[Rfam]
RNA sequence: CCUCCAUUUCUUGGCGGGGAGCGGGCGUGCAGUCCCGAUCUCCGUUAUGUACGGAGGCAGAAGGAAAGGGCUCGAGCCCUCUCGGCGUCAUGUCUUCGGUGCCGGCGGCUUCUCGUACGCCGGUUCUAUCCUCAAGCGCCGGGACAUGC
Number, nucleotide and partner (000 for none) at each position: 001c057002c056003u055004c054005c053006a000007u000008u000009u000010c000011u000012u000013g000014g000015c044016g043017g042018g041019g040020a039021g000022c037023g036024g035025g034026c000027g000028u000029g000030c000031a000032g000033u000034c025035c024036c023037g022038a000039u020040c019041u018042c017043c016044g015045u000046u000047a000048u000049g000050u000051a000052c000053g005054g004055a003056g002057g001058c000059a000060g000061a000062a000063g000064g000065a000066a000067a000068g000069g000070g000071c000072u000073c000074g000075a000076g000077c000078c000079c000080u000081c000082u000083c141084g140085g139086c138087g137088u136089c000090a000091u000092g000093u000094c000095u000096u000097c000098g000099g000100u000101g000102c123103c122104g121105g120106c119107g118108g000109c000110u000111u000112c000113u000114c000115g000116u000117a000118c107119g106120c105121c104122g103123g102124u000125u000126c000127u000128a000129u000130c000131c000132u000133c000134a000135a000136g088137c087138g086139c085140c084141g083142g000143g000144a000145c000146a000147u000148g000149c000
A member of the RNA family "Small nucleolar RNA SNORA57" from Dipodomys ordii, 149 nucleotides long. U99 belongs to the H/ACA class of snoRNAs which are thought to guide the sites of modification of uridines to pseudouridines, the target for this family is unknown. The family has 26 seed sequences and 1,736 matches in Rfam 15.1. Gene Ontology terms of the family: RNA processing and nucleolus. The family's consensus secondary structure was predicted with PFOLD. Taxonomically the source falls in Dipodomys (Eukaryota, Craniata, Tetrapoda, Heteromyidae).